[Rfam]
RNA sequence: ACAUUUCGCAAAUUCACAUGCCCUAUGUUGCGAAAUGAACUCAAUACACAGUGAUUUAUGGUGUGUAUUGAGCGCUUAUCGUAACGCAAGGCCGUGAAUUUGUAAAGUGU
Numbered sequence: 001a002c003a004u005u006u007c008g009c010a011a012a013u014u015c016a017c018a019u020g021c022c023c024u025a026u027g028u029u030g031c032g033a034a035a036u037g038a039a040c041u042c043a044a045u046a047c048a049c050a051g052u053g054a055u056u057u058a059u060g061g062u063g064u065g066u067a068u069u070g071a072g073c074g075c076u077u078a079u080c081g082u083a084a085c086g087c088a089a090g091g092c093c094g095u096g097a098a099u100u101u102g103u104a105a106a107g108u109g110u
Stems, first nucleotide, its partner, number of pairs: 002109005008103009020092002024088001026086008035077001037075001040072002043069004048064003

This 110-nucleotide RNA from Oryza punctata belongs to the Rfam family "MIR1428 microRNA precursor family".
Rfam 15.1 lists 96 matches to the family in 9 species.
The source organism's lineage runs through Eukaryota, Tracheophyta, Liliopsida, Oryzinae and Oryza.
For this family Rfam cites "Identification of novel and candidate miRNAs in rice by high throughput sequencing" (Sunkar et al., BMC Plant Biol, 2008).